[Rfam]
RNA sequence: CCUGCCCCUAGAGGCCUUGCAGGUGUGGCUGCUGUGUCACACGUGCAGCAGUAGGUGGCAGAGAGGAGAGAGGCUACGUCUACGCUCCGUGUUCUGACCUACGAAUAUCUGAAUUAUCAGUAGCUUAACAUA
Numbered sequence: 001c002c003u004g005c006c007c008c009u010a011g012a013g014g015c016c017u018u019g020c021a022g023g024u025g026u027g028g029c030u031g032c033u034g035u036g037u038c039a040c041a042c043g044u045g046c047a048g049c050a051g052u053a054g055g056u057g058g059c060a061g062a063g064a065g066g067a068g069a070g071a072g073g074c075u076a077c078g079u080c081u082a083c084g085c086u087c088c089g090u091g092u093u094c095u096g097a098c099c100u101a102c103g104a105a106u107a108u109c110u111g112a113a114u115u116a117u118c119a120g121u122a123g124c125u126u127a128a129c130a131u132a
Stems, first nucleotide, its partner, number of pairs: 002061005007055004013049001019046003024041006068129001071126007084114001086112002089109001090107005
Overview
The family of this 132-nucleotide RNA from Rattus norvegicus is "Small nucleolar RNA SNORA17". Pairs were carried over by alignment from the consensus structure, which was predicted with RNAalifold. The organism belongs to Rattus, within Eukaryota. It scores 122 bits against the family's covariance model. snoRNA ACA 17 belongs to the H/ACA family of snoRNAs and is predicted to guide pseudouridylation of the 28S rRNA at positions U4659 and U4598. It shares the same host gene together with ACA43. NB This family has a high threshold value to exclude a large number of closely related sequences that do not appear to have conserved H and ACA boxes, and may be pseudogenes.